[Rfam]
Record summary
Shown here is a 214-nucleotide sequence from Oryzicola mucosus, a member of the family "permuted transfer-messenger RNA". Pairs were carried over by alignment from the consensus structure, which is taken from published work. Bacterial tmRNA, also known as 10Sa RNA or SsrA, is named for its dual tRNA and mRNA-like properties. Its role is to liberate the mRNA from a stalled ribosome. To accomplish this part of the tmRNA is used as a reading frame that ends in a translation stop signal. The broken mRNA is replaced in the ribosome by the tmRNA and translation of the tmRNA leads to addition of a proteolysis tag to the incomplete protein enabling recognition by a protease. Rfam classes the family as a non-coding RNA gene. Lineage of the source: Bacteria > Pseudomonadota > Hyphomicrobiales > Phyllobacteriaceae > Oryzicola. Gene Ontology term of the family: RNA catabolic process.
RNA sequence: GGUGAUAAACGGCCGAUGAAAUAAGCCUUUCGGACCCGGGGGCGGUACCCGGCGCCUCCACCAUAAACCGCCGUUCGCGACGGUUUAUGAUGGGGGCGAAAUAGGAUCGACGAGGGUGUAAAGAUCGGACUUUUGCCCGGCAUUGUACCACCGUUAUCGGGCUAAACUUGUAGUUGCAAACGACAACUAUGCUGAGGCACGUCUCGCUGCUUAA
Numbered sequence: 001g002g003u004g005a006u007a008a009a010c011g012g013c014c015g016a017u018g019a020a021a022u023a024a025g026c027c028u029u030u031c032g033g034a035c036c037c038g039g040g041g042g043c044g045g046u047a048c049c050c051g052g053c054g055c056c057u058c059c060a061c062c063a064u065a066a067a068c069c070g071c072c073g074u075u076c077g078c079g080a081c082g083g084u085u086u087a088u089g090a091u092g093g094g095g096g097c098g099a100a101a102u103a104g105g106a107u108c109g110a111c112g113a114g115g116g117u118g119u120a121a122a123g124a125u126c127g128g129a130c131u132u133u134u135g136c137c138c139g140g141c142a143u144u145g146u147a148c149c150a151c152c153g154u155u156a157u158c159g160g161g162c163u164a165a166a167c168u169u170g171u172a173g174u175u176g177c178a179a180a181c182g183a184c185a186a187c188u189a190u191g192c193u194g195a196g197g198c199a200c201g202u203c204u205c206g207c208u209g210c211u212u213a214a
Stems, first nucleotide, its partner, number of pairs: 001137005014127004026116003030113003036052005053098007138153003